[Rfam]
RNA sequence: AGUGAUGAUAGAGGUGCGAACUUCAAGAGUAGACAUUCGGAGGAAAAUGAGUUCUGAAGAGGAAUGUUGAAAGGGGAGCGUCGCCGAAGUGGGGAAAGUCUCAUUGCUUUUCCUGCUGGUUCUGCGUUGAAGAAAUGUAGGACUGUCAAGAUGGAUUCAUCUUGGAGCGCUAUCUCACUG
Numbered sequence: 001a002g003u004g005a006u007g008a009u010a011g012a013g014g015u016g017c018g019a020a021c022u023u024c025a026a027g028a029g030u031a032g033a034c035a036u037u038c039g040g041a042g043g044a045a046a047a048u049g050a051g052u053u054c055u056g057a058a059g060a061g062g063a064a065u066g067u068u069g070a071a072a073g074g075g076g077a078g079c080g081u082c083g084c085c086g087a088a089g090u091g092g093g094g095a096a097a098g099u100c101u102c103a104u105u106g107c108u109u110u111u112c113c114u115g116c117u118g119g120u121u122c123u124g125c126g127u128u129g130a131a132g133a134a135a136u137g138u139a140g141g142a143c144u145g146u147c148a149a150g151a152u153g154g155a156u157u158c159a160u161c162u163u164g165g166a167g168c169g170c171u172a173u174c175u176c177a178c179u180g
Base pairs, nucleotide, nucleotide: 007174008173009172010171011170016084017083018082019081021078022077023076024075032068033067034066035065036064037063038062088117089116090115091114092113093112094111095110096109097108098107099106118144119143120142121141122140123139124138125137126136127135128134146165147164148163149162150161151160152159
RNA: Lysine riboswitch aptamer
Organism: Anoxybacteroides amylolyticum